[Rfam]
RNA sequence: UUGGGCCUGAAACGUAGACUAGGGGGCCACUUUCGGAGUACUUGGUUACUCACUUCUCCCCCGGGAAGGUCUGAGAUCAGGACUGUCUUUCAACCUCUUAAUUGGAGGGUGUUCCCUAAAUAAGGGGCGCGGGGUAACAGAAAAAGCAAUGACAUAUCCUUGGCAAGAGUUUAAUGCGGAUAAGUGGUUGGUGGGAUAGCCCCGUAGUCGGCGAUUUGAGUGCAAUCUCUACGGCGUAACCUCUAAAGCGUAACUCAAUUCAGACUAAUCUCAGGACCAA
Numbered sequence: 001u002u003g004g005g006c007c008u009g010a011a012a013c014g015u016a017g018a019c020u021a022g023g024g025g026g027c028c029a030c031u032u033u034c035g036g037a038g039u040a041c042u043u044g045g046u047u048a049c050u051c052a053c054u055u056c057u058c059c060c061c062c063g064g065g066a067a068g069g070u071c072u073g074a075g076a077u078c079a080g081g082a083c084u085g086u087c088u089u090u091c092a093a094c095c096u097c098u099u100a101a102u103u104g105g106a107g108g109g110u111g112u113u114c115c116c117u118a119a120a121u122a123a124g125g126g127g128c129g130c131g132g133g134g135u136a137a138c139a140g141a142a143a144a145a146g147c148a149a150u151g152a153c154a155u156a157u158c159c160u161u162g163g164c165a166a167g168a169g170u171u172u173a174a175u176g177c178g179g180a181u182a183a184g185u186g187g188u189u190g191g192u193g194g195g196a197u198a199g200c201c202c203c204g205u206a207g208u209c210g211g212c213g214a215u216u217u218g219a220g221u222g223c224a225a226u227c228u229c230u231a232c233g234g235c236g237u238a239a240c241c242u243c244u245a246a247a248g249c250g251u252a253a254c255u256c257a258a259u260u261c262a263g264a265c266u267a268a269u270c271u272c273a274g275g276a277c278c279a280a
Stems, first nucleotide, its partner, number of pairs: 001280004008273003013233006022062005036051005071263005081209004091111002094108005113127005129205007147190003234251004